[Rfam]
RNA: mir-184 microRNA precursor family
RNA sequence: CCACUCACCUUCCCUUAUCACUUUUCCAGCCCAGCUUUGUGACUAAAUGUUGGACGGAGAACUGAUAAGACUAGGUGAUUGA
Numbered sequence: 001c002c003a004c005u006c007a008c009c010u011u012c013c014c015u016u017a018u019c020a021c022u023u024u025u026c027c028a029g030c031c032c033a034g035c036u037u038u039g040u041g042a043c044u045a046a047a048u049g050u051u052g053g054a055c056g057g058a059g060a061a062c063u064g065a066u067a068a069g070a071c072u073a074g075g076u077g078a079u080u081g082a
Stems, first nucleotide, its partner, number of pairs: 014069007022061006030053002